[Rfam]
RNA sequence: UUACUUACCUGGCAGGGGCAAUACCAUGAUCAAGGAGGUGGUUUGCCCAAAGUGAGGCCCAGCCAUUGCACUCGGGCUAUGCAGACCUGUGAAUUCAUCAAAUGCCAGAAUAGCGACUGCAUAAUAUCUGAUAGGGAGGACUGCAUUCACGCUCUUCCCUU
Numbered sequence: 001u002u003a004c005u006u007a008c009c010u011g012g013c014a015g016g017g018g019c020a021a022u023a024c025c026a027u028g029a030u031c032a033a034g035g036a037g038g039u040g041g042u043u044u045g046c047c048c049a050a051a052g053u054g055a056g057g058c059c060c061a062g063c064c065a066u067u068g069c070a071c072u073c074g075g076g077c078u079a080u081g082c083a084g085a086c087c088u089g090u091g092a093a094u095u096c097a098u099c100a101a102a103u104g105c106c107a108g109a110a111u112a113g114c115g116a117c118u119g120c121a122u123a124a125u126a127u128c129u130g131a132u133a134g135g136g137a138g139g140a141c142u143g144c145a146u147u148c149a150c151g152c153u154c155u156u157c158c159c160u161u
Stems, first nucleotide, its partner, number of pairs: 012120004016048006023042005051088002054086001057082002061078004090115002093111001094109002136160001138158002140155001143152002
Dot-bracket structure: ...........((((((((((.(((((..........)))))))))))..((.(..((..((((..........))))..))...))).((.(((............)).)..)).))))...............(.(((..((......))..).)).).

A member of the RNA family "U1 spliceosomal RNA" from Hemibagrus wyckioides, 161 nucleotides long. Taxonomically the source falls in Hemibagrus (Eukaryota, Metazoa, Craniata, Vertebrata). Rfam classes the family as a spliceosomal small nuclear RNA. Its family is annotated with pre-mRNA 5'-splice site binding, mRNA 5'-splice site recognition and U1 snRNP in the Gene Ontology.